[Rfam]
The record is a 37-nucleotide sequence, which matches "Renin stability regulatory element (REN-SRE)" in Rfam. The family's consensus secondary structure is taken from published work. The literature on the family includes a 2003 paper in J Biol Chem by Adams et al., "HADHB, HuR, and CP1 Bind to the Distal 3'-Untranslated Region of Human Renin mRNA and Differentially Modulate Renin Expression". This family represents a cis-acting element in the 3'-UTR of the renin (REN) gene called renin stability regulatory element (REN-SRE) which acts to regulate renin production. REN-SRE is thought to destabilise the mRNA, promoting degradation of the sequence. It has been found that a number of proteins bind to the REN-SRE to stabilise the mRNA and promote translation. Renin is secreted by renal juxtaglomerular cells and catalyses the conversion of angiotensinogen into angiotensin I which is the rate-limiting step in the production of angiotensin II. Angiotensin II induces hypertension and REN therefore requires tight control to ensure expression appropriate to need.
RNA sequence: CUGCUUUAGGGAAAAACAGAAUAAAGACUGCAUGUUU
Numbered sequence: 001c002u003g004c005u006u007u008a009g010g011g012a013a014a015a016a017c018a019g020a021a022u023a024a025a026g027a028c029u030g031c032a033u034g035u036u037u
Base pairs, nucleotide, nucleotide: 001019002018005016006015007014